[Rfam]
RNA sequence: UAUAAUACAAUCAUUCUAUCGUAGACAGCAGGGAAGCAAUAGCUUUCAAACUCCUGCCGAGAUGGACAAAUAGUUAUGGCUCAUUCGGAGGCUUCUAUUUUGUUCGUACGAUAGUGCGAUUUUUUUUGUUUUGC
Numbered sequence: 001u002a003u004a005a006u007a008c009a010a011u012c013a014u015u016c017u018a019u020c021g022u023a024g025a026c027a028g029c030a031g032g033g034a035a036g037c038a039a040u041a042g043c044u045u046u047c048a049a050a051c052u053c054c055u056g057c058c059g060a061g062a063u064g065g066a067c068a069a070a071u072a073g074u075u076a077u078g079g080c081u082c083a084u085u086c087g088g089a090g091g092c093u094u095c096u097a098u099u100u101u102g103u104u105c106g107u108a109c110g111a112u113a114g115u116g117c118g119a120u121u122u123u124u125u126u127u128g129u130u131u132u133g134c
Base pairs, nucleotide, nucleotide: 028057029056030055031054032053033052034045035044036043102121104119105118106117107116108115109114
RNA: Ribosomal protein L10 leader